[Rfam]
RNA: Small nucleolar RNA SNORA28
RNA sequence: AGACAACACUCCGGCAGAUGAUUAAAACUCUCUGACACAGUGUGAGCUUGUUGUAGCAGAAAGUCUAACCUAUUCGGUGCUCUCUCCUCUGUGAGACAAGCCGUUAUAUAGACUUAGAGAGU
Numbered sequence: 001a002g003a004c005a006a007c008a009c010u011c012c013g014g015c016a017g018a019u020g021a022u023u024a025a026a027a028c029u030c031u032c033u034g035a036c037a038c039a040g041u042g043u044g045a046g047c048u049u050g051u052u053g054u055a056g057c058a059g060a061a062a063g064u065c066u067a068a069c070c071u072a073u074u075c076g077g078u079g080c081u082c083u084c085u086c087c088u089c090u091g092u093g094a095g096a097c098a099a100g101c102c103g104u105u106a107u108a109u110a111g112a113c114u115u116a117g118a119g120a121g122u
Stems, first nucleotide, its partner, number of pairs: 009046003013036001015034004020029001061115007071108003075103004083096004